RNA: Trypanosomatid snoRNA TB11Cs4H2
Organism: Leishmania major
RNA sequence: ACGGAGUGCAUUGAGUCCCACCGCUCCCCACCAGUACGCGCGUGGGAGCAUCAACUCUCCUAGA
Number, nucleotide and partner (000 for none) at each position: 001a000002c000003g060004g059005a058006g057007u000008g055009c000010a000011u000012u000013g000014a000015g000016u047017c046018c045019c044020a043021c042022c040023g039024c038025u000026c000027c000028c000029c000030a000031c000032c000033a000034g000035u000036a000037c000038g024039c023040g022041c000042g021043u020044g019045g018046g017047a016048g000049c000050a000051u000052c000053a000054a000055c008056u000057c006058u005059c004060c003061u000062a000063g000064a000